Source information
This 70-nucleotide sequence from Bagarius yarrelli belongs to the Rfam family "Small nucleolar RNA SNORD2". It is annotated as a C/D-box small nucleolar RNA. It scores 66 bits against the family's covariance model. On this family, see Zhou et al., Gene 2004: "Identification of a novel box C/D snoRNA from mouse nucleolar cDNA library". Gene Ontology terms of the family: nucleolus and RNA processing. NCBI's taxonomy places the organism under Eukaryota, Chordata, Ostariophysi, Otophysi, Bagarius.
[Rfam]
RNA sequence: GUAUGAAAUGAUGGCAUACCAUCUUUCGGGACUGACCAUGAUGGAGACAAUCUUAUUUUACUGAUCAUAC
Numbered sequence: 001g002u003a004u005g006a007a008a009u010g011a012u013g014g015c016a017u018a019c020c021a022u023c024u025u026u027c028g029g030g031a032c033u034g035a036c037c038a039u040g041a042u043g044g045a046g047a048c049a050a051u052c053u054u055a056u057u058u059u060a061c062u063g064a065u066c067a068u069a070c
Stems, first nucleotide, its partner, number of pairs: 001070006